potC RNA: a 70-nucleotide RNA sequence. The family's RNA type in Rfam is cis-regulatory element. The sequence is in the family's curated seed alignment. The family's consensus secondary structure is taken from published work.

RNA sequence: AUGAUUGUGCUCAAAUCUUUCUCCUUAGGAUCUUUACCCUUUCCUAUAAAUUAGUUUUGGGCACAAAAAA
Numbered sequence: 001a002u003g004a005u006u007g008u009g010c011u012c013a014a015a016u017c018u019u020u021c022u023c024c025u026u027a028g029g030a031u032c033u034u035u036a037c038c039c040u041u042u043c044c045u046a047u048a049a050a051u052u053a054g055u056u057u058u059g060g061g062c063a064c065a066a067a068a069a070a
Base pairs, nucleotide, nucleotide: 006065007064008063009062010061011060012059013058014057015056017054018053026046027045028044029043030042